RNA sequence: ACUGUGGAGUAUUAUACCAAAUGUAAGUAGCUUUUAUAGCAAAAGCAGAUACGUUGAGACGGUUG
Number, nucleotide and partner (000 for none) at each position: 001a063002c062003u061004g060005u059006g000007g000008a000009g052010u051011a050012u049013u048014a000015u000016a000017c000018c000019a000020a000021a000022u047023g046024u045025a000026a000027g000028u000029a000030g040031c039032u038033u000034u000035u000036a000037u000038a032039g031040c030041a000042a000043a000044a000045g024046c023047a022048g013049a012050u011051a010052c009053g000054u000055u000056g000057a000058g000059a005060c004061g003062g002063u001064u000065g000

The record is a 65-nucleotide RNA sequence, which matches "RAGATH-18 RNA" in Rfam.
Rfam's curators put it in the seed alignment.
The family's RNA type in Rfam is small RNA.
Actinobacteria, Firmicutes, Fusobacteria, Thermotogae (1 example).